[Rfam]
RNA sequence: CCAUAAGUCCAAGGCCAUAGCAGCAACAUUCAUGGUGCAGCCCUGUCAGAUUCCAACAAAUCUGCAAAUUCUGUU
Dot-bracket structure: ............[[[...(((((.(.((.......))..]]]....((((((......))))))....).)))))